This 96-nucleotide RNA sequence from Albula glossodonta belongs to the Rfam family "Small nucleolar RNA SNORD21".
Its family is annotated with nucleolus and RNA processing in the Gene Ontology.
A search with the family's covariance model found it, with a score of 64 bits.

RNA sequence: GCUUGAUGAUGACAACUUUGGAACUGAGCAAAUUGUAGUUGGUCCUUCAUUUGCUUAGCUGAUGUAACCUUGUUUCAAGACGGGGCUGAGAGCGGC
Number, nucleotide and partner (000 for none) at each position: 001g093002c092003u091004u090005g000006a000007u000008g000009a000010u000011g000012a000013c000014a000015a000016c000017u000018u000019u000020g000021g000022a000023a000024c000025u000026g000027a000028g000029c000030a000031a000032a000033u000034u000035g000036u000037a000038g000039u000040u000041g000042g000043u000044c000045c000046u000047u000048c000049a000050u000051u000052u000053g000054c000055u000056u000057a000058g000059c000060u000061g000062a000063u000064g000065u000066a000067a000068c000069c000070u000071u000072g000073u000074u000075u000076c000077a000078a000079g000080a000081c000082g000083g000084g000085g000086c000087u000088g000089a000090g004091a003092g002093c001094g000095g000096c000